[Rfam]
RNA sequence: AAAGGAUUUAGGCAAACCUUUUGAAAAAAAGGGACGCAAAGCUAUGGGUCUAAAGAUAUUUAAUCUAUGAUUGCCAGGUUGCAUCA
Numbered sequence: 001a002a003a004g005g006a007u008u009u010a011g012g013c014a015a016a017c018c019u020u021u022u023g024a025a026a027a028a029a030a031g032g033g034a035c036g037c038a039a040a041g042c043u044a045u046g047g048g049u050c051u052a053a054a055g056a057u058a059u060u061u062a063a064u065c066u067a068u069g070a071u072u073g074c075c076a077g078g079u080u081g082c083a084u085c086a
Stems, first nucleotide, its partner, number of pairs: 012037002017032006040080004045076003048071003055065003
This 86-nucleotide RNA sequence from Propionispora sp. 2/2-37 belongs to the Rfam family "c-di-GMP-I riboswitch aptamer".
A reference for the family is Weinberg et al. (2007), "Identification of 22 candidate structured RNAs in bacteria using the CMfinder comparative genomics pipeline", Nucleic Acids Res.
Lineage of the source: Bacteria > Bacillati > Negativicutes > Selenomonadales > Propionispora.